[Rfam]
Nucleotides: 102
Base pairs, nucleotide, nucleotide: 002094003093004092006090007089009086011084012082013081014080016075017074018073019072022069025068026067027066028065029064030063031062033060037055038054039053
Number, partner (000 for none) and nucleotide at each position: 001000a002094g003093g004092a005000a006090c007089a008000a009086c010000c011084g012082c013081c014080u015000u016075g017074g018073c019072g020000g021000g022069g023000c024000c025068a026067g027066c028065u029064c030063u031062g032000g033060a034000g035000c036000c037055c038054u039053g040000g041000c042000u043000u044000c045000a046000g047000u048000c049000c050000c051000c052000a053039c054038a055037g056000u057000a058000a059000c060033u061000a062031c063030a064029g065028a066027g067026c068025u069022c070000g071000g072019u073018g074017u075016c076000u077000g078000c079000a080014g081013g082012g083000u084011c085000u086009g087000g088000a089007u090006g091000c092004u093003c094002u095000g096000g097000g098000g099000g100000c101000g102000g

Shown here is a 102-nucleotide RNA sequence from Canis lupus, a member of the family "mir-8834 microRNA precursor family". The base pairs follow the family's consensus structure, which was predicted with RNAalifold. The family has 2 seed sequences and 13,926 matches in Rfam 15.1. It scores 53 bits against the family's covariance model.